[Rfam]
RNA sequence: GGCCUCCCUCUGUGGGGCAAUCAAUUUUGGGGCCCCACAAUCAAUCACCCCACAGAGGGAGGCC
Numbered sequence: 001g002g003c004c005u006c007c008c009u010c011u012g013u014g015g016g017g018c019a020a021u022c023a024a025u026u027u028u029g030g031g032g033c034c035c036c037a038c039a040a041u042c043a044a045u046c047a048c049c050c051c052a053c054a055g056a057g058g059g060a061g062g063c064c
Base pairs, nucleotide, nucleotide: 001064002063003062004061005060006059007058008057009056010055011054012053013052014051015050016049017048020045021044024041025040026039028037029036030035